[Rfam]
RNA sequence: AUAAUGAUACGACCUUACAGCCAUAGUCCGAGCGUUCAAAGCGUCGCAGGCGAUGGGUAGGGCUGCACGAGAACCGUGCGGGGGUGAAACUCCCUUGG
Numbered sequence: 001a002u003a004a005u006g007a008u009a010c011g012a013c014c015u016u017a018c019a020g021c022c023a024u025a026g027u028c029c030g031a032g033c034g035u036u037c038a039a040a041g042c043g044u045c046g047c048a049g050g051c052g053a054u055g056g057g058u059a060g061g062g063c064u065g066c067a068c069g070a071g072a073a074c075c076g077u078g079c080g081g082g083g084g085u086g087a088a089a090c091u092c093c094c095u096u097g098g
Stems, first nucleotide, its partner, number of pairs: 012095001013062006063081003067077003082094003
Annotation:
Shown here is a 98-nucleotide RNA sequence from Ruminococcus sp. CAG:57, a member of the family "pemK RNA". By type it is a cis-regulatory element.